[Rfam]
RNA: t44 RNA
Organism: Methylomonas sp. LL1
RNA sequence: AGUUCACUAUGUUUAAUACUCACGCCUGUCGACACGAUUGAUGGGGUGCCGGUUAAAGUCCUAGGGCAUUAACGGGUCAUCAGUCGGGACGGAGCGGAGGCGUAAC
Number, nucleotide and partner (000 for none) at each position: 001a000002g000003u000004u000005c000006a000007c000008u000009a000010u000011g000012u000013u000014u000015a000016a000017u000018a000019c000020u000021c000022a000023c096024g095025c094026c092027u091028g090029u089030c088031g000032a000033c000034a000035c086036g085037a084038u083039u082040g081041a080042u079043g078044g000045g000046g000047u000048g077049c076050c075051g000052g073053u072054u071055a070056a069057a000058g000059u000060c000061c000062u000063a000064g000065g000066g000067c000068a000069u056070u055071a054072a053073c052074g000075g050076g049077u048078c043079a042080u041081c040082a039083g038084u037085c036086g035087g000088g030089a029090c028091g027092g026093a000094g025095c024096g023097g000098a000099g000100g000101c000102g000103u000104a000105a000106c000